[Rfam]
This 117-nucleotide sequence from Calderihabitans maritimus belongs to the Rfam family "Group II catalytic intron D1-D4-2". Rfam 15.1 lists 1,231 matches to the family in 625 species. The match comes from Rfam's covariance-model search (123 bits).
RNA sequence: GAGGGAAGGCCCCUCAAAGCCGGCUUGCAGGAGCAGGCUUUAAACCACCUCAAGCUGCAGGGGUCAAGAGCCCAUGUAGUGAGCGUUGAGGAAAAGGCAGGAAGAAACCUGUCAGGU
Dot-bracket structure: (((((.....)))))((((((.((((....)))).))))))....(.((((((((.(((.((((.....)))).))).)).....))))))....((((((......))))))..).